[Rfam]
RNA: MIR1120/MIR1122 microRNA precursor family
Organism: Triticum turgidum
RNA sequence: CUACUCCCUCUAUCCCAUAAUAUAAGAGCAUUUCUUAUACUACACUAAUGUAAAAAAUGUUCUUAUAUUAUGGGACGGAGGGAGUAU
Numbered sequence: 001c002u003a004c005u006c007c008c009u010c011u012a013u014c015c016c017a018u019a020a021u022a023u024a025a026g027a028g029c030a031u032u033u034c035u036u037a038u039a040c041u042a043c044a045c046u047a048a049u050g051u052a053a054a055a056a057a058u059g060u061u062c063u064u065a066u067a068u069u070a071u072g073g074g075a076c077g078g079a080g081g082g083a084g085u086a087u
Stems, first nucleotide, its partner, number of pairs: 003085003007081005013075005019069015035053005041047001
Dot-bracket structure: ..(((.(((((.(((((.(((((((((((((((.(((((.(.....).))))).))))))))))))))).))))).))))).)))..